[Rfam]
RNA sequence: AAUCCAUGUUGAGGGCAGAGUCGAAUCAAAUCUUUAUACAUUUCCCAUGCUUCAUAGAGUGACUCAAAAUGAUUUUGCUUGAAUUGACCAAUCUCACUCCUGAGUUG
Numbered sequence: 001a002a003u004c005c006a007u008g009u010u011g012a013g014g015g016c017a018g019a020g021u022c023g024a025a026u027c028a029a030a031u032c033u034u035u036a037u038a039c040a041u042u043u044c045c046c047a048u049g050c051u052u053c054a055u056a057g058a059g060u061g062a063c064u065c066a067a068a069a070u071g072a073u074u075u076u077g078c079u080u081g082a083a084u085u086g087a088c089c090a091a092u093c094u095c096a097c098u099c100c101u102g103a104g105u106u107g
Base pairs, nucleotide, nucleotide: 004104005102006101057074058073060071
RNA: Plant small nucleolar RNA R71